Archaeal signal recognition particle RNA: a 311-nucleotide RNA from Candidatus Nitrosotenuis cloacae. Pairs were carried over by alignment from the consensus structure, which is taken from published work. The match comes from Rfam's covariance-model search (118 bits). Clan: SRP clan.
[Rfam]
RNA sequence: UAGUAGGUAGGAUCGGGGCGCUAGCCGUGCCCUUUUCUGAAACCGGCUCUAUGCAGAGGUCAGUAACUGCUGGAUAAAUUUCCAGAUGGAUAAUUCCUGCUUGAUGUACUGAAAUGAAAUCACGCCGAAGCGGGUGGAUGCAGGCAUGUGAUCGUCCGAAGGGAUGAUCUUAAUGUCGAAUUGCCGAAAUGGAUGAGGUCCGGGAGGGAGCAAUCCUAAGGCAAAGUAUUCACGCUGCUUCGUCAACGUGGCGGAUCUUGUGCAUCUUGAGAUGGGGCUACUCGUCUGGAUUGGAACUGGCAGAUCUACUA
Numbered sequence: 001u002a003g004u005a006g007g008u009a010g011g012a013u014c015g016g017g018g019c020g021c022u023a024g025c026c027g028u029g030c031c032c033u034u035u036u037c038u039g040a041a042a043c044c045g046g047c048u049c050u051a052u053g054c055a056g057a058g059g060u061c062a063g064u065a066a067c068u069g070c071u072g073g074a075u076a077a078a079u080u081u082c083c084a085g086a087u088g089g090a091u092a093a094u095u096c097c098u099g100c101u102u103g104a105u106g107u108a109c110u111g112a113a114a115u116g117a118a119a120u121c122a123c124g125c126c127g128a129a130g131c132g133g134g135u136g137g138a139u140g141c142a143g144g145c146a147u148g149u150g151a152u153c154g155u156c157c158g159a160a161g162g163g164a165u166g167a168u169c170u171u172a173a174u175g176u177c178g179a180a181u182u183g184c185c186g187a188a189a190u191g192g193a194u195g196a197g198g199u200c201c202g203g204g205a206g207g208g209a210g211c212a213a214u215c216c217u218a219a220g221g222c223a224a225a226g227u228a229u230u231c232a233c234g235c236u237g238c239u240u241c242g243u244c245a246a247c248g249u250g251g252c253g254g255a256u257c258u259u260g261u262g263c264a265u266c267u268u269g270a271g272a273u274g275g276g277g278c279u280a281c282u283c284g285u286c287u288g289g290a291u292u293g294g295a296a297c298u299g300g301c302a303g304a305u306c307u308a309c310u311a
Stems, first nucleotide, its partner, number of pairs: 001311008011061004015033007036057004041052001068302006075296001082289003087284003091280002094277004100269001103266007111258001113256001115254001120251005126242008134233008143177005148171001150169008181224005191216004199208003